[Rfam]
The family of this 502-nucleotide part of an RNA from Halonotius pteroides is "Archaeal small subunit ribosomal RNA". It is one of the family's seed sequences. The family's consensus secondary structure is taken from published work. Clan: SSU clan. Lineage of the source: Archaea > Methanobacteriota > Halobacteriales > Haloferacaceae > Halonotius. On this family, see Cannone et al., BMC Bioinformatics 2002: "The comparative RNA web (CRW) site: an online database of comparative sequence and structure information for ribosomal, intron, and other RNAs".
RNA sequence: AUUCCGGUUGAUCCUGCCGGAGGACAUUGCUAUUGGGAUUCGAUUUAGCCAUGCUAGUCGAACGAGUUCACACUCGUGGCACAUAGCUCAGUAACACGUGGCCAAGCUACCCUUCAGUCGGCAAUACCCUCGGGAAACUGAGGCUAAUAGCCGAUACGAAACAGACGCUGGAAUGCACUGUAUUCCAAAGACACCGCUGAAGGAUGCGGCUGCGGCCGAUUAGGUAGACGGUGGGGUAACGGCCCACCGUGCCAGUAAUCGGUACGGGUGAUGAGAGUCAGAGCCCGGAGACGGAAUCUGAGACAAGAUUCCGGGCCCUACGGGGCGCAGCAGGCGCGAAACCUUUACACUGCACGAAAGUGCGAUAGGGGAAUCCCGAGUGCGAGGGCAUAUUAGCCCUCGCUUUUGUUGACUCUAAGGCGGUCAACGAAUAAGAGCUGGGCAAGACCGGUGCCAGCCGCCGCGGUAAUACCGGCAGCUCAAGUGAUGUCCCAUAUUAUUG
Numbered sequence: 001a002u003u004c005c006g007g008u009u010g011a012u013c014c015u016g017c018c019g020g021a022g023g024a025c026a027u028u029g030c031u032a033u034u035g036g037g038a039u040u041c042g043a044u045u046u047a048g049c050c051a052u053g054c055u056a057g058u059c060g061a062a063c064g065a066g067u068u069c070a071c072a073c074u075c076g077u078g079g080c081a082c083a084u085a086g087c088u089c090a091g092u093a094a095c096a097c098g099u100g101g102c103c104a105a106g107c108u109a110c111c112c113u114u115c116a117g118u119c120g121g122c123a124a125u126a127c128c129c130u131c132g133g134g135a136a137a138c139u140g141a142g143g144c145u146a147a148u149a150g151c152c153g154a155u156a157c158g159a160a161a162c163a164g165a166c167g168c169u170g171g172a173a174u175g176c177a178c179u180g181u182a183u184u185c186c187a188a189a190g191a192c193a194c195c196g197c198u199g200a201a202g203g204a205u206g207c208g209g210c211u212g213c214g215g216c217c218g219a220u221u222a223g224g225u226a227g228a229c230g231g232u233g234g235g236g237u238a239a240c241g242g243c244c245c246a247c248c249g250u251g252c253c254a255g256u257a258a259u260c261g262g263u264a265c266g267g268g269u270g271a272u273g274a275g276a277g278u279c280a281g282a283g284c285c286c287g288g289a290g291a292c293g294g295a296a297u298c299u300g301a302g303a304c305a306a307g308a309u310u311c312c313g314g315g316c317c318c319u320a321c322g323g324g325g326c327g328c329a330g331c332a333g334g335c336g337c338g339a340a341a342c343c344u345u346u347a348c349a350c351u352g353c354a355c356g357a358a359a360g361u362g363c364g365a366u367a368g369g370g371g372a373a374u375c376c377c378g379a380g381u382g383c384g385a386g387g388g389c390a391u392a393u394u395a396g397c398c399c400u401c402g403c404u405u406u407u408g409u410u411g412a413c414u415c416u417a418a419g420g421c422g423g424u425c426a427a428c429g430a431a432u433a434a435g436a437g438c439u440g441g442g443c444a445a446g447a448c449c450g451g452u453g454c455c456a457g458c459c460g461c462c463g464c465g466g467u468a469a470u471a472c473c474g475g476c477a478g479c480u481c482a483a484g485u486g487a488u489g490u491c492c493c494a495u496a497u498u499a500u501u502g
Stems, first nucleotide, its partner, number of pairs: 004020005022492010033379009042337001048335003052332003057080003062077006087290003097214007106207002111203007119153004128143006158184002161181004167176002190195001216262003223253003228250008265287004269280004292313006315326004343369001345368003351364005382403008408428007435481006448475004457464002